Annotation:
mir-10 microRNA precursor family: a 73-nucleotide RNA from Podarcis muralis. A reference for the family is Lee and Ambros (2001), "An extensive class of small RNAs in Caenorhabditis elegans", Science.

RNA sequence: UCAUAUGCACCCUGUAGAAUCGAAGUUGUGUGAGCGCCUCAAUCACAAAUUCGUCUCUAGGGGAGUAUAUGGA
Numbered sequence: 001u002c003a004u005a006u007g008c009a010c011c012c013u014g015u016a017g018a019a020u021c022g023a024a025g026u027u028g029u030g031u032g033a034g035c036g037c038c039u040c041a042a043u044c045a046c047a048a049a050u051u052c053g054u055c056u057c058u059a060g061g062g063g064a065g066u067a068u069a070u071g072g073a
Base pairs, nucleotide, nucleotide: 002071003070004069005068006067007066010063011062012061016058017057018056021053022052023051024050026048027047028046029045030044